[Rfam]
RNA sequence: AGCCCCACAGGGGUCUUAAUUUAUUUCUUAUCUUUUGCUAUGUAAGGGUCUGUGGUGUUUUUAAAUAAUGGUUUCUUCUUCCUGCU
Numbered sequence: 001a002g003c004c005c006c007a008c009a010g011g012g013g014u015c016u017u018a019a020u021u022u023a024u025u026u027c028u029u030a031u032c033u034u035u036u037g038c039u040a041u042g043u044a045a046g047g048g049u050c051u052g053u054g055g056u057g058u059u060u061u062u063a064a065a066u067a068a069u070g071g072u073u074u075c076u077u078c079u080u081c082c083u084g085c086u
Stems, first nucleotide, its partner, number of pairs: 009079004016064004025055002032048007
RNA: Stem loopII regulatory element in POLB